[Rfam]
RNA: HIV-1 stem-loop 3 Psi packaging signal
Organism: Cocos nucifera
RNA sequence: UGACUAGAGGAGUCUAGAAGAAG
Numbered sequence: 001u002g003a004c005u006a007g008a009g010g011a012g013u014c015u016a017g018a019a020g021a022a023g
Stems, first nucleotide, its partner, number of pairs: 004017005